[Rfam]
RNA sequence: GGGCGUCAGCCCUUCACCACGGAUCGUCGGGCACGUUCCUGCCCGUGAAAGGAAGUCUCA
Numbered sequence: 001g002g003g004c005g006u007c008a009g010c011c012c013u014u015c016a017c018c019a020c021g022g023a024u025c026g027u028c029g030g031g032c033a034c035g036u037u038c039c040u041g042c043c044c045g046u047g048a049a050a051g052g053a054a055g056u057c058u059c060a
Stems, first nucleotide, its partner, number of pairs: 010052002013049004028045006
Dot-bracket structure: .........((.((((...........((((((......)))))))))).))........
Record summary
The family of this 60-nucleotide sequence from Rhodococcus sp. ABRD24 is "msiK RNA". Taxonomically the source falls in Rhodococcus (Bacteria, Actinomycetes, Mycobacteriales, Nocardiaceae). By type it is a cis-regulatory element. A search with the family's covariance model found it, with a score of 62 bits.